[Rfam]
RNA sequence: AGCUCGACCGGGUCGACCGCGCGGGACGUCAGCAGAUAGUCGCGCAUGACGAUCGCGUGCCGGCCCUC
Numbered sequence: 001a002g003c004u005c006g007a008c009c010g011g012g013u014c015g016a017c018c019g020c021g022c023g024g025g026a027c028g029u030c031a032g033c034a035g036a037u038a039g040u041c042g043c044g045c046a047u048g049a050c051g052a053u054c055g056c057g058u059g060c061c062g063g064c065c066c067u068c
Stems, first nucleotide, its partner, number of pairs: 004063003008059001011030003015027001017025002035056001038053001040052003
RNA: ASdes TB sRNA
Organism: Actinacidiphila alni